[Rfam]
RNA sequence: AGGCGGGCACGCGACUGGCGAUAGGCCCGCCGACCGGGAAAACACCGCUUUUUCACCGACUGGCGUGGCUGACGUGGGCCACCACCGGGGAGCGUGCCGCGCGGCAUGUCGUCAGGCCCCCGGGCCACCUGCAAGCCGUCGCGUUUUGCCGUGCGCCUGGGCAGCCUUU
Number, nucleotide and partner (000 for none) at each position: 001a000002g000003g000004c000005g000006g098007g097008c096009a095010c094011g093012c092013g000014a000015c089016u088017g157018g156019c155020g154021a000022u000023a000024g000025g000026c000027c000028c000029g000030c000031c000032g000033a000034c000035c000036g000037g000038g000039a000040a000041a000042a000043c000044a000045c000046c000047g000048c000049u000050u000051u000052u000053u000054c000055a000056c000057c000058g000059a000060c000061u000062g000063g000064c000065g000066u000067g000068g000069c000070u000071g000072a000073c000074g085075u084076g083077g082078g000079c000080c000081a000082c077083c076084a075085c074086c000087g000088g016089g015090g000091a000092g012093c011094g010095u009096g008097c007098c006099g000100c000101g000102c000103g000104g000105c000106a000107u000108g000109u000110c000111g000112u000113c000114a000115g000116g000117c000118c000119c000120c000121c000122g000123g000124g000125c000126c000127a000128c000129c000130u000131g000132c000133a000134a000135g000136c000137c000138g000139u000140c000141g000142c000143g000144u000145u000146u164147u163148g162149c161150c160151g000152u000153g000154c020155g019156c018157c017158u000159g000160g150161g149162c148163a147164g146165c000166c000167u000168u000169u000
ZMP/ZTP riboswitch aptamer (pfl RNA motif): a 169-nucleotide RNA sequence from Hylemonella gracilis. It scores 40 bits against the family's covariance model. Pairs were carried over by alignment from the consensus structure, which is taken from published work.